Rfam assigns this 144-nucleotide RNA from Anaerococcus lactolyticus to the family "glmS glucosamine-6-phosphate activated ribozyme aptamer". The base pairs follow the family's consensus structure, which is taken from published work. Taxonomically the source falls in Anaerococcus lactolyticus (Bacteria, Bacillati, Tissierellia, Peptoniphilaceae). It scores 80 bits against the family's covariance model.
[Rfam]
RNA sequence: AAAAACAACAAAGCGCCAGAUCCCUUUGGGAUGACGAGGGAGGAAGUUAUCGAAAAUUCGGCGGGAGCUUCCUGGGUUCACAGCCUUAGUGUUAGACAAAAGCAGAGAGCAAUUUCUGCGACAGAGAAGACACAGUGGCCUCAU
Numbered sequence: 001a002a003a004a005a006c007a008a009c010a011a012a013g014c015g016c017c018a019g020a021u022c023c024c025u026u027u028g029g030g031a032u033g034a035c036g037a038g039g040g041a042g043g044a045a046g047u048u049a050u051c052g053a054a055a056a057u058u059c060g061g062c063g064g065g066a067g068c069u070u071c072c073u074g075g076g077u078u079c080a081c082a083g084c085c086u087u088a089g090u091g092u093u094a095g096a097c098a099a100a101a102g103c104a105g106a107g108a109g110c111a112a113u114u115u116c117u118g119c120g121a122c123a124g125a126g127a128a129g130a131c132a133c134a135g136u137g138g139c140c141u142c143a144u
Stems, first nucleotide, its partner, number of pairs: 020032005041073005050061004075085004089133005102119007